The family of this 37-nucleotide RNA from Aeribacillus pallidus is "Ribosomal protein L19 leader". Rfam's curators write: This family is a putative r-protein leader autoregulatory structure found in B. subtilis and other low-GC Gram-positive bacteria. It is located in the 5' untranslated regions of mRNAs encoding ribosomal protein L19 (rplS).
[Rfam]
RNA sequence: ACGAUGUUCCGCUGCAAGCAUCUUGUAUGAGCAUCUG
Number, nucleotide and partner (000 for none) at each position: 001a000002c000003g035004a034005u033006g032007u031008u030009c029010c000011g000012c000013u027014g026015c025016a024017a023018g022019c000020a000021u000022c018023u017024u016025g015026u014027a013028u000029g009030a008031g007032c006033a005034u004035c003036u000037g000